Background
The family of this 51-nucleotide RNA sequence is "6A RNA".
RNA sequence: UGAUCUGUUCGUAGAGCGCGAGCAGGGUAAACGAAAAAAAGCUCACUGAGA
Numbered sequence: 001u002g003a004u005c006u007g008u009u010c011g012u013a014g015a016g017c018g019c020g021a022g023c024a025g026g027g028u029a030a031a032c033g034a035a036a037a038a039a040a041g042c043u044c045a046c047u048g049a050g051a
Stems, first nucleotide, its partner, number of pairs: 006024006014044004
Dot-bracket structure: .....((((((..[[[[.))))))................]]]].......
By type it is a small RNA. The family's consensus secondary structure is taken from published work. Rfam's curators put it in the seed alignment.